[Rfam]
RNA: Molybdenum/Tungsten riboswitch aptamer (Moco RNA motif)
RNA sequence: AAAUUAAUAGUACUCCGAGCUUAGGCACCUAAGAUAGUAAUUAUGGUUCUUAAGCCGUUAGGGUUUGUCUGGAAACGGGCAGGCCUCCCAAUGCGGAAAGGAGAAACACAUUAUGCCAAA
Numbered sequence: 001a002a003a004u005u006a007a008u009a010g011u012a013c014u015c016c017g018a019g020c021u022u023a024g025g026c027a028c029c030u031a032a033g034a035u036a037g038u039a040a041u042u043a044u045g046g047u048u049c050u051u052a053a054g055c056c057g058u059u060a061g062g063g064u065u066u067g068u069c070u071g072g073a074a075a076c077g078g079g080c081a082g083g084c085c086u087c088c089c090a091a092u093g094c095g096g097a098a099a100g101g102a103g104a105a106a107c108a109c110a111u112u113a114u115g116c117c118a119a120a
Base pairs, nucleotide, nucleotide: 003114004113006111011105013103014102015101016100019055020054021053022052023051024050025049027047028046029045033042034041035040061086062085063084064083065082066081067080068079069078070077071076087096088095